[Rfam]
RNA sequence: AUAAUCUAUUAUCAUUACUACGUAUCCUAUGCACAAGAGAUAUAGUAGUUGAGAAGGUAAUAGAUUAUAAACCACGUGGGAGAUGCAGUUGUAGGUUCCAACUGGUGCACAUCUUUUAGAGACAGUAACCAAGCUCGAAGUAAGCACAGAGCGAAGAUAGAAAGCUAUACCUCGAUAGGCUUAAUGAGGUGCUUAACAGUCUGACACUAACUGAACAAUAAGUGUUG
Numbered sequence: 001a002u003a004a005u006c007u008a009u010u011a012u013c014a015u016u017a018c019u020a021c022g023u024a025u026c027c028u029a030u031g032c033a034c035a036a037g038a039g040a041u042a043u044a045g046u047a048g049u050u051g052a053g054a055a056g057g058u059a060a061u062a063g064a065u066u067a068u069a070a071a072c073c074a075c076g077u078g079g080g081a082g083a084u085g086c087a088g089u090u091g092u093a094g095g096u097u098c099c100a101a102c103u104g105g106u107g108c109a110c111a112u113c114u115u116u117u118a119g120a121g122a123c124a125g126u127a128a129c130c131a132a133g134c135u136c137g138a139a140g141u142a143a144g145c146a147c148a149g150a151g152c153g154a155a156g157a158u159a160g161a162a163a164g165c166u167a168u169a170c171c172u173c174g175a176u177a178g179g180c181u182u183a184a185u186g187a188g189g190u191g192c193u194u195a196a197c198a199g200u201c202u203g204a205c206a207c208u209a210a211c212u213g214a215a216c217a218a219u220a221a222g223u224g225u226u227g
Base pairs, nucleotide, nucleotide: 001068002067003066004065005064006063007062008061009060010059011058012057013056015054016053024041025040026039027037081114082113083112084111086104087103088102089101090100091099133152134151135150136149141195142194143193144192145191169190170189171188172187173186202227203226204225205224206223207222208221
Shown here is a 227-nucleotide RNA, a member of the family "RAGATH-7 RNA". A reference for the family is Weinberg et al. (2015), "New classes of self-cleaving ribozymes revealed by comparative genomics analysis", Nat Chem Biol. By type it is a small RNA.